[Rfam]
RNA sequence: UCAUCAGGUGGGAUAAUCCUUACCUGUUACUCCUUAAGGAGAACAGAUUAGAAAUGAUUGGAGUUCUUCGCAUGAUACGUGAUUAUACGUCUCUGUGUAAUCAGGACUUGCAAAGAACACAGAUUACUUUUGGAGCUUAU
Numbered sequence: 001u002c003a004u005c006a007g008g009u010g011g012g013a014u015a016a017u018c019c020u021u022a023c024c025u026g027u028u029a030c031u032c033c034u035u036a037a038g039g040a041g042a043a044c045a046g047a048u049u050a051g052a053a054a055u056g057a058u059u060g061g062a063g064u065u066c067u068u069c070g071c072a073u074g075a076u077a078c079g080u081g082a083u084u085a086u087a088c089g090u091c092u093c094u095g096u097g098u099a100a101u102c103a104g105g106a107c108u109u110g111c112a113a114a115g116a117a118c119a120c121a122g123a124u125u126a127c128u129u130u131u132g133g134a135g136c137u138u139a140u
Stems, first nucleotide, its partner, number of pairs: 024046003028043001030041004074093002077090003080085001097127006104120001
U8 small nucleolar RNA: a 140-nucleotide sequence from Microcebus murinus. Rfam classes the family as a C/D-box small nucleolar RNA. Rfam links the family to the GO terms RNA processing and nucleolus. A search with the family's covariance model found it, with a score of 84 bits. NCBI's taxonomy places the organism under Eukaryota, Sarcopterygii, Mammalia, Boreoeutheria, Microcebus. Pairs were carried over by alignment from the consensus structure, which is taken from published work.